The family of this 33-nucleotide RNA from Mucilaginibacter paludis is "DUF805b RNA". Rfam classes the family as a cis-regulatory element. The sequence is in the family's curated seed alignment. Clan: DUF805 clan.
[Rfam]
RNA sequence: GGGGCGAAACCCGAAAAGCCUUAAGAGUAGGAA
Numbered sequence: 001g002g003g004g005c006g007a008a009a010c011c012c013g014a015a016a017a018g019c020c021u022u023a024a025g026a027g028u029a030g031g032a033a
Stems, first nucleotide, its partner, number of pairs: 002021004011031002